[Rfam]
RNA sequence: UGAUAAUUUACACUCCAAGCCCCUCGGACCUGUGUUAUUGCUGAUAAUAUGGCUGACGGGCCGCAGUUUUAACUGCCAGGGUGUGGGAAGAAAUGACCACAUCUCCCGACUUCGGAAAGGUGUUCUUGUGUCUCAGUU
Numbered sequence: 001u002g003a004u005a006a007u008u009u010a011c012a013c014u015c016c017a018a019g020c021c022c023c024u025c026g027g028a029c030c031u032g033u034g035u036u037a038u039u040g041c042u043g044a045u046a047a048u049a050u051g052g053c054u055g056a057c058g059g060g061c062c063g064c065a066g067u068u069u070u071a072a073c074u075g076c077c078a079g080g081g082u083g084u085g086g087g088a089a090g091a092a093a094u095g096a097c098c099a100c101a102u103c104u105c106c107c108g109a110c111u112u113c114g115g116a117a118a119g120g121u122g123u124u125c126u127u128g129u130g131u132c133u134c135a136g137u138u
Stems, first nucleotide, its partner, number of pairs: 006129001012123002015120002019061004024056003029052002034048004063076005079104008089094001105115002
The family of this 138-nucleotide RNA sequence from Tatumella morbirosei is "Molybdenum/Tungsten riboswitch aptamer (Moco RNA motif)".
The base pairs follow the family's consensus structure, which is taken from published work.
Rfam links the family to the GO terms regulation of gene expression, tungstate binding and molybdenum ion binding.